The record is a 143-nucleotide sequence from Etheostoma spectabile, which matches "Small nucleolar RNA U109" in Rfam. NCBI's taxonomy places the organism under Eukaryota, Teleostomi, Neopterygii, Percoidei, Oligocephalus. The literature on the family includes a 2003 paper in EMBO J by Richard et al., "A common sequence motif determines the Cajal body-specific localization of box H/ACA scaRNAs". The match comes from Rfam's covariance-model search (50 bits).
RNA sequence: CCCUGGGCCAUUGUUGUCCUCUCGAUCUCUGUGGAGUGGACAAAACACAAACAUGCCAGAUUAAUAGUGAACACAUCUGGAGUUAUCAGGGCCACCAGUCCUUCAAGGUCAGACUGAGUUGGUAGUAUAAUACUCCGACACAA
Numbered sequence: 001c002c003c004u005g006g007g008c009c010a011u012u013g014u015u016g017u018c019c020u021c022u023c024g025a026u027c028u029c030u031g032u033g034g035a036g037u038g039g040a041c042a043a044a045a046c047a048c049a050a051a052c053a054u055g056c057c058a059g060a061u062u063a064a065u066a067g068u069g070a071a072c073a074c075a076u077c078u079g080g081a082g083u084u085a086u087c088a089g090g091g092c093c094a095c096c097a098g099u100c101c102u103u104c105a106a107g108g109u110c111a112g113a114c115u116g117a118g119u120u121g122g123u124a125g126u127a128u129a130a131u132a133c134u135c136c137g138a139c140a141c142a143a
Stems, first nucleotide, its partner, number of pairs: 003059004014043006021036003079136004091123002095118001096116005102111001